Source information
A member of the RNA family "Glycine riboswitch aptamer" from Candidatus Afipia apatlaquensis, 90 nucleotides long. For this family Rfam cites "A glycine-dependent riboswitch that uses cooperative binding to control gene expression" (Mandal et al., Science, 2004). A search with the family's covariance model found it, with a score of 67 bits. The pairing is the family consensus, mapped onto this sequence.
RNA sequence: ACAAGUCACGUCGGGAGAGACCGGCUUCAUGCCGGCGCCGAAGGAGCAACCGCCCCGGAAACUCUCAGGCAAACGGACCGUGUGACUGAC
Numbered sequence: 001a002c003a004a005g006u007c008a009c010g011u012c013g014g015g016a017g018a019g020a021c022c023g024g025c026u027u028c029a030u031g032c033c034g035g036c037g038c039c040g041a042a043g044g045a046g047c048a049a050c051c052g053c054c055c056c057g058g059a060a061a062c063u064c065u066c067a068g069g070c071a072a073a074c075g076g077a078c079c080g081u082g083u084g085a086c087u088g089a090c
Base pairs, nucleotide, nucleotide: 006085007084008083009082010081012080013079014078021035022034023033024032037070038069039068040066041065044064045063046062050058051057